The record is a 47-nucleotide RNA sequence, which matches "Plastid-rpl16 group II-D1 intron" in Rfam.
For this family Rfam cites "Retrograde signaling in plants: A critical review focusing on the GUN pathway and beyond" (Richter et al., Plant Commun, 2023).
Rfam's curators put it in the seed alignment.
Rfam 15.1 lists 1,446 matches to the family in 693 species.
RNA sequence: AAGAGCCUUGAAUCAAUAAAGACUGAGAAGAUUGAUUCAAGAGAAAA
Numbered sequence: 001a002a003g004a005g006c007c008u009u010g011a012a013u014c015a016a017u018a019a020a021g022a023c024u025g026a027g028a029a030g031a032u033u034g035a036u037u038c039a040a041g042a043g044a045a046a047a
Base pairs, nucleotide, nucleotide: 007041008040010038011037012036013035014034015033016032017031